[Rfam]
RNA sequence: CACAGGGUCCGGGCCCCUCUGGCAACCGCGUGGCAGCAGGUUGCGAUGUCGGACCCCUGAU
Numbered sequence: 001c002a003c004a005g006g007g008u009c010c011g012g013g014c015c016c017c018u019c020u021g022g023c024a025a026c027c028g029c030g031u032g033g034c035a036g037c038a039g040g041u042u043g044c045g046a047u048g049u050c051g052g053a054c055c056c057c058u059g060a061u
Stems, first nucleotide, its partner, number of pairs: 006055007022044006028037002

This 61-nucleotide RNA sequence from Roseivivax jejudonensis belongs to the Rfam family "terC RNA". Lineage of the source: Bacteria > Pseudomonadati > Pseudomonadota > Roseobacteraceae > Roseivivax. It scores 54 bits against the family's covariance model. The family's RNA type in Rfam is cis-regulatory element. The base pairs follow the family's consensus structure, which is taken from published work.